[Rfam]
RNA: Bacterial large subunit ribosomal RNA, nucleotides 1621 to 1980
RNA sequence: UGAGAGAACUCGGGUGAAGGAACUCGGCAAAAUCGUACCGUAACUUCGGGAGAAGGUACGCCGCUUAUUGUGAUGGACUUUACGUCCUAAGCGAUGGGCGGCCGCAGUGAAAAGGUGGCUGGAACUGUUUAUUAAAAACACAGCACUGUGCUAAAUCGAAAGAUGACGUAUACGGUGUGACGCCUGCCCGGUGCCGGAAGGUUAAUUGAUGGGGUUAGCGCAAGCGAAGCUCUUGAUCGAAGCCCCGGUAAACGGCGGCCGUAACUAUAACGGUCCUAAGGUAGCGAAAUUCCUUGUCGGGUAAGUUCCGACCUGCACGAAUGGCGUAAUCAUGGCCACGCUGUCUCCACCCGAGACUCA
Numbered sequence: 001u002g003a004g005a006g007a008a009c010u011c012g013g014g015u016g017a018a019g020g021a022a023c024u025c026g027g028c029a030a031a032a033u034c035g036u037a038c039c040g041u042a043a044c045u046u047c048g049g050g051a052g053a054a055g056g057u058a059c060g061c062c063g064c065u066u067a068u069u070g071u072g073a074u075g076g077a078c079u080u081u082a083c084g085u086c087c088u089a090a091g092c093g094a095u096g097g098g099c100g101g102c103c104g105c106a107g108u109g110a111a112a113a114g115g116u117g118g119c120u121g122g123a124a125c126u127g128u129u130u131a132u133u134a135a136a137a138a139c140a141c142a143g144c145a146c147u148g149u150g151c152u153a154a155a156u157c158g159a160a161a162g163a164u165g166a167c168g169u170a171u172a173c174g175g176u177g178u179g180a181c182g183c184c185u186g187c188c189c190g191g192u193g194c195c196g197g198a199a200g201g202u203u204a205a206u207u208g209a210u211g212g213g214g215u216u217a218g219c220g221c222a223a224g225c226g227a228a229g230c231u232c233u234u235g236a237u238c239g240a241a242g243c244c245c246c247g248g249u250a251a252a253c254g255g256c257g258g259c260c261g262u263a264a265c266u267a268u269a270a271c272g273g274u275c276c277u278a279a280g281g282u283a284g285c286g287a288a289a290u291u292c293c294u295u296g297u298c299g300g301g302u303a304a305g306u307u308c309c310g311a312c313c314u315g316c317a318c319g320a321a322u323g324g325c326g327u328a329a330u331c332a333u334g335g336c337c338a339c340g341c342u343g344u345c346u347c348c349a350c351c352c353g354a355g356a357c358u359c360a
Stems, first nucleotide, its partner, number of pairs: 001360004009355008018346003035059005044049001060102012103107001115339007122331002126140003143178008151168001155164003181326004186256003191253002193249005200244003211233005218225002257275006276280001286313001296312006